A member of the RNA family "RNA Staph. aureus A" from Staphylococcus aureus, 60 nucleotides long. The source organism's lineage runs through Bacteria, Caryophanales, Staphylococcaceae, Staphylococcus and Staphylococcus aureus. It is one of the family's seed sequences. On this family, see Geissmann et al., Nucleic Acids Res 2009: "A search for small noncoding RNAs in Staphylococcus aureus reveals a conserved sequence motif for regulation".
[Rfam]
RNA sequence: AAUUAUUAGUGUUAAUUGUAGCGCAUCCCAAUUAAAUAUUGCAACCUAUUUUAUUAAAAU
Numbered sequence: 001a002a003u004u005a006u007u008a009g010u011g012u013u014a015a016u017u018g019u020a021g022c023g024c025a026u027c028c029c030a031a032u033u034a035a036a037u038a039u040u041g042c043a044a045c046c047u048a049u050u051u052u053a054u055u056a057a058a059a060u
Stems, first nucleotide, its partner, number of pairs: 009024006029041004048060005